[Rfam]
Notes:
A member of the RNA family "FMN riboswitch aptamer (RFN element)" from Aerococcus urinaehominis, 115 nucleotides long.

RNA sequence: GAAAAUCUUCGGGGCAGGGUGAAAUUCCCGAUCGGCGGUAAAGUCCGCGAACCAAUUUGGUUGAACUAGUGAAAUUCUAGUACCGACUGUAUAGUCAGGAUGAGAGAAGAAGAUA
Dot-bracket structure: .....(((((......(((.......))).[[((((((....[[))))..(((.....)))...(((((.......)))))]])).(((....]]))).......))))).....
Numbered sequence: 001g002a003a004a005a006u007c008u009u010c011g012g013g014g015c016a017g018g019g020u021g022a023a024a025u026u027c028c029c030g031a032u033c034g035g036c037g038g039u040a041a042a043g044u045c046c047g048c049g050a051a052c053c054a055a056u057u058u059g060g061u062u063g064a065a066c067u068a069g070u071g072a073a074a075u076u077c078u079a080g081u082a083c084c085g086a087c088u089g090u091a092u093a094g095u096c097a098g099g100a101u102g103a104g105a106g107a108a109g110a111a112g113a114u115a
Stems, first nucleotide, its partner, number of pairs: 006110005017029003031095002033085002035048004043083002051061003065081005087098003
The match comes from Rfam's covariance-model search (114 bits). The base pairs follow the family's consensus structure, which is taken from published work.